mir-9465 microRNA precursor family: a 74-nucleotide RNA from Nematostella vectensis. Gene Ontology terms of the family: miRNA-mediated post-transcriptional gene silencing and RISC complex. Taxonomically the source falls in Nematostella (Eukaryota, Opisthokonta, Eumetazoa, Hexacorallia).

RNA sequence: AGAUGGAAUGGCACUCCUAUCAAAAGUGAAAGCACUAAUGUGGAGGUAUUUGGAUGGGAGGAAUUUGAGAGAGG
Numbered sequence: 001a002g003a004u005g006g007a008a009u010g011g012c013a014c015u016c017c018u019a020u021c022a023a024a025a026g027u028g029a030a031a032g033c034a035c036u037a038a039u040g041u042g043g044a045g046g047u048a049u050u051u052g053g054a055u056g057g058g059a060g061g062a063a064u065u066u067g068a069g070a071g072a073g074g
Stems, first nucleotide, its partner, number of pairs: 006066004014060008024051005033042003